[Rfam]
RNA sequence: CGACGUUCUCAGGGCGGGGCGAGAUUCCCCACCGGUGGUAAUUGCCAAAUAAUGGCAUAGCCCACGAGCGCUUGUUUACCCUGUGACUUAAGGUGAGCAAGGUCAGCAGACUUGGUGAGAUCCCAAGGCCGACGGUUACAGUCCGGAUGAAGAGAGAGCGGGA
Numbered sequence: 001c002g003a004c005g006u007u008c009u010c011a012g013g014g015c016g017g018g019g020c021g022a023g024a025u026u027c028c029c030c031a032c033c034g035g036u037g038g039u040a041a042u043u044g045c046c047a048a049a050u051a052a053u054g055g056c057a058u059a060g061c062c063c064a065c066g067a068g069c070g071c072u073u074g075u076u077u078a079c080c081c082u083g084u085g086a087c088u089u090a091a092g093g094u095g096a097g098c099a100a101g102g103u104c105a106g107c108a109g110a111c112u113u114g115g116u117g118a119g120a121u122c123c124c125a126a127g128g129c130c131g132a133c134g135g136u137u138a139c140a141g142u143c144c145g146g147a148u149g150a151a152g153a154g155a156g157a158g159c160g161g162g163a
Base pairs, nucleotide, nucleotide: 004160005159006158007157008156009155010154017029018028019027031142032141033131034130035065036064037063038062060129061128068107069106111127112126113125114124115123133145134144135143
Notes: Rfam assigns this 163-nucleotide RNA from Pseudomonas sp. C27(2019) to the family "FMN riboswitch aptamer (RFN element)". Taxonomically the source falls in Pseudomonas (Bacteria, Gammaproteobacteria, Pseudomonadales, Pseudomonadaceae). Pairs were carried over by alignment from the consensus structure, which is taken from published work.